[Rfam]
RNA sequence: GCCUUAUCAAGAGUGGCGGAGGGAACGGCCCGAUGAAGCCCGGCAACCUGUUGAUUCAAGGUGCCAAAUCCGGCGUCAGACGAAAGAUGAGGG
Numbered sequence: 001g002c003c004u005u006a007u008c009a010a011g012a013g014u015g016g017c018g019g020a021g022g023g024a025a026c027g028g029c030c031c032g033a034u035g036a037a038g039c040c041c042g043g044c045a046a047c048c049u050g051u052u053g054a055u056u057c058a059a060g061g062u063g064c065c066a067a068a069u070c071c072g073g074c075g076u077c078a079g080a081c082g083a084a085a086g087a088u089g090a091g092g093g
Stems, first nucleotide, its partner, number of pairs: 002092007013041001015040003021031003026072003042065004047061002050057001069085001074082003
Dot-bracket structure: .(((((((....(.(((...(((..[[[)))......))))((((.((.(......)..))))))...(]]].(((...)))..)))))))).
A member of the RNA family "SAM riboswitch aptamer (S box leader)" from Firmicutes bacterium CAG:137, 93 nucleotides long. The source organism's lineage runs through Bacteria, Bacillati and Bacillota.